[Rfam]
RNA sequence: UUCGCUGUAACCCUUCGGGGGGGUGCUGGUGGGAACUCGUCGAACUGUCAUGUUGAGGCGUGAUCACCGUGUGGCCGUCUGGUGUGGGCGGGAGUCGACUCUGGUGGCUUCCCGUAGGGGUGGCUUCCGAGCCGUUGAAUGCGGCGGACCGCUUGAGGCUGGCAACAGAGCAGAGAAAAGCUUCAGCUUCUGCUACACAGCAGAUCGCGGCUCACAGUGCGCGCA
Numbered sequence: 001u002u003c004g005c006u007g008u009a010a011c012c013c014u015u016c017g018g019g020g021g022g023g024u025g026c027u028g029g030u031g032g033g034a035a036c037u038c039g040u041c042g043a044a045c046u047g048u049c050a051u052g053u054u055g056a057g058g059c060g061u062g063a064u065c066a067c068c069g070u071g072u073g074g075c076c077g078u079c080u081g082g083u084g085u086g087g088g089c090g091g092g093a094g095u096c097g098a099c100u101c102u103g104g105u106g107g108c109u110u111c112c113c114g115u116a117g118g119g120g121u122g123g124c125u126u127c128c129g130a131g132c133c134g135u136u137g138a139a140u141g142c143g144g145c146g147g148a149c150c151g152c153u154u155g156a157g158g159c160u161g162g163c164a165a166c167a168g169a170g171c172a173g174a175g176a177a178a179a180g181c182u183u184c185a186g187c188u189u190c191u192g193c194u195a196c197a198c199a200g201c202a203g204a205u206c207g208c209g210g211c212u213c214a215c216a217g218u219g220c221g222c223g224c225a
Stems, first nucleotide, its partner, number of pairs: 011020003054225001058222003073212006079203003083199003087194009096134002099131003103128002106125004111120003135139001140185002143182003152175003159168003
Protozoan signal recognition particle RNA: a 225-nucleotide sequence from Babesia bovis. Clan: SRP clan. The base pairs follow the family's consensus structure, which is taken from published work. Rfam 15.1 lists 111 matches to the family in 100 species. The source organism's lineage runs through Eukaryota, Sar, Apicomplexa, Babesia and Babesia bovis.